[Rfam]
Small nucleolar RNA snR60/Z15/Z230/Z193/J17: a 99-nucleotide RNA sequence from Brassica rapa. The family is grouped with related families in Rfam's "SNORD77 clan". The source organism's lineage runs through Eukaryota, Viridiplantae, Mesangiospermae, Brassicaceae and Brassica. By type it is a C/D-box small nucleolar RNA. For this family Rfam cites "A computational screen for methylation guide snoRNAs in yeast" (Lowe and Eddy, Science, 1999). The match comes from Rfam's covariance-model search (75 bits). Rfam links the family to the GO terms RNA processing and nucleolus.
RNA sequence: GAGGGUCAAGUGAGGAAUAAUAAUGCAUAGUUCAGAUGAUAUAAUCUCCAUGAUUACAUAACAGUAGCAAUAGUCUUUCGCUCCUAUCUGAUGACCCUC
Numbered sequence: 001g002a003g004g005g006u007c008a009a010g011u012g013a014g015g016a017a018u019a020a021u022a023a024u025g026c027a028u029a030g031u032u033c034a035g036a037u038g039a040u041a042u043a044a045u046c047u048c049c050a051u052g053a054u055u056a057c058a059u060a061a062c063a064g065u066a067g068c069a070a071u072a073g074u075c076u077u078u079c080g081c082u083c084c085u086a087u088c089u090g091a092u093g094a095c096c097c098u099c
Base pairs, nucleotide, nucleotide: 004096005095006094007093008092